[Rfam]
RNA sequence: AAUGGUAGUUUCGUCGCUUUUCAUUAUAGUUCUUAUUGGACGUUUUGUCUGCAUUCAAAAAUCUCUAUAAUCUCUACAGUGGUUUUACCCACUACAGAAAUUAUAGAGCC
Numbered sequence: 001a002a003u004g005g006u007a008g009u010u011u012c013g014u015c016g017c018u019u020u021u022c023a024u025u026a027u028a029g030u031u032c033u034u035a036u037u038g039g040a041c042g043u044u045u046u047g048u049c050u051g052c053a054u055u056c057a058a059a060a061a062u063c064u065c066u067a068u069a070a071u072c073u074c075u076a077c078a079g080u081g082g083u084u085u086u087a088c089c090c091a092c093u094a095c096a097g098a099a100a101u102u103a104u105a106g107a108g109c110c
Base pairs, nucleotide, nucleotide: 001025002024003023004022005021008017009016028043031040032039063108064107065106067104068103069102070101071100073098074097078093079092080091081090082089
RNA: Streptococcus RNA 266